[Rfam]
RNA sequence: UGCGCGCCACAACGGCUUCCUGACGUGGCGCUAGGUUUUUAUUGGAGCG
Number, nucleotide and partner (000 for none) at each position: 001u000002g000003c000004g031005c030006g029007c028008c027009a026010c025011a000012a000013c022014g021015g048016c047017u046018u000019c045020c044021u014022g013023a000024c000025g010026u009027g008028g007029c006030g005031c004032u000033a000034g000035g000036u000037u000038u000039u000040u000041a000042u000043u000044g020045g019046a017047g016048c015049g000
Annotation
This 49-nucleotide RNA from Sulfitobacter albidus belongs to the Rfam family "SAM/SAH riboswitch aptamer". The match comes from Rfam's covariance-model search (57 bits).